A member of the RNA family "CopA-like RNA" from Escherichia coli, 92 nucleotides long.
Lineage of the source: Bacteria > Pseudomonadota > Enterobacterales > Enterobacteriaceae > Escherichia.
In several groups of bacterial plasmids, antisense RNAs regulate copy number through inhibition of replication initiator protein synthesis. These RNAs are characterised by a long hairpin structure interrupted by several unpaired residues or bulged loops.
Rfam's curators put it in the seed alignment.
Pairs were carried over by alignment from the consensus structure, which was predicted with PFOLD.
RNA sequence: AUAGAGCAACAGCUUCUAUGCGGUUUCUUGUUAGCCCCGUUAAUCUUCUUCUCAGUCGCCAAACUUGCUGAAGAUUAUCGGGGUUUUCACUU
Numbered sequence: 001a002u003a004g005a006g007c008a009a010c011a012g013c014u015u016c017u018a019u020g021c022g023g024u025u026u027c028u029u030g031u032u033a034g035c036c037c038c039g040u041u042a043a044u045c046u047u048c049u050u051c052u053c054a055g056u057c058g059c060c061a062a063a064c065u066u067g068c069u070g071a072a073g074a075u076u077a078u079c080g081g082g083g084u085u086u087u088c089a090c091u092u
Stems, first nucleotide, its partner, number of pairs: 001019005030090002033085007041077007